The family of this 167-nucleotide RNA sequence from Culicoidibacter larvae is "M-box riboswitch aptamer (ykoK leader)". NCBI's taxonomy places the organism under Bacteria, Bacillati, Bacillota, Culicoidibacteraceae, Culicoidibacter. The base pairs follow the family's consensus structure.
[Rfam]
RNA sequence: AUAUUCUUAUAUUAGGUGAGGCUCCUAUACAGAUACACGCUGCUGCCCUGAAAUAUCGAGAGAUGCCAAAGGGUCAACAGAUGCCAUCGAAUUAAGGUGGUGUUUAAUGUAGCUACGAACAUCAAUCAGACGCUGUAUAGUGCUAAAACUCAAUGAAGUAAGAAAGG
Numbered sequence: 001a002u003a004u005u006c007u008u009a010u011a012u013u014a015g016g017u018g019a020g021g022c023u024c025c026u027a028u029a030c031a032g033a034u035a036c037a038c039g040c041u042g043c044u045g046c047c048c049u050g051a052a053a054u055a056u057c058g059a060g061a062g063a064u065g066c067c068a069a070a071g072g073g074u075c076a077a078c079a080g081a082u083g084c085c086a087u088c089g090a091a092u093u094a095a096g097g098u099g100g101u102g103u104u105u106a107a108u109g110u111a112g113c114u115a116c117g118a119a120c121a122u123c124a125a126u127c128a129g130a131c132g133c134u135g136u137a138u139a140g141u142g143c144u145a146a147a148a149c150u151c152a153a154u155g156a157a158g159u160a161a162g163a164a165a166g167g
Stems, first nucleotide, its partner, number of pairs: 005163006011154002013095001015150003020144003025140008039113005045074005054065004080104004086098003117127002